Background: Shown here is a 68-nucleotide sequence from Anguilla anguilla, a member of the family "mir-33 microRNA precursor family". The literature on the family includes a 2010 paper in Mol Hum Reprod by Ahn et al., "MicroRNA transcriptome in the newborn mouse ovaries determined by massive parallel sequencing".
[Rfam]
RNA sequence: CUGUGGUGCAUUGUCGUUGCAUUGCAUGACCCUCCGGCCCAGUGCAAUGUGUCUGCAGUGCAGCACAG
Numbered sequence: 001c002u003g004u005g006g007u008g009c010a011u012u013g014u015c016g017u018u019g020c021a022u023u024g025c026a027u028g029a030c031c032c033u034c035c036g037g038c039c040c041a042g043u044g045c046a047a048u049g050u051g052u053c054u055g056c057a058g059u060g061c062a063g064c065a066c067a068g
Stems, first nucleotide, its partner, number of pairs: 001068004006064001007062008016053001019050001021048007
Record summary
The organism belongs to Anguilla, within Eukaryota.